A member of the RNA family "mir-998 microRNA precursor family" from Bombyx mori, 81 nucleotides long.
RNA sequence: UGGGCUCGGUCGCGAGCUGCCUCCCGUGCGGCUGCAGUGCUCGCGUGUAGCACCAUGGGAUUCAGCUCACGGCCGCUCCCC
Numbered sequence: 001u002g003g004g005c006u007c008g009g010u011c012g013c014g015a016g017c018u019g020c021c022u023c024c025c026g027u028g029c030g031g032c033u034g035c036a037g038u039g040c041u042c043g044c045g046u047g048u049a050g051c052a053c054c055a056u057g058g059g060a061u062u063c064a065g066c067u068c069a070c071g072g073c074c075g076c077u078c079c080c081c
Stems, first nucleotide, its partner, number of pairs: 003079002007075001009073001011071002014068002017065003022060007032050005
Dot-bracket structure: ..((..(.(.((.((.(((..(((((((...(((((.........)))))...)))))))..))).)).)).).)..))..
The organism belongs to Bombyx, within Eukaryota. It scores 65 bits against the family's covariance model.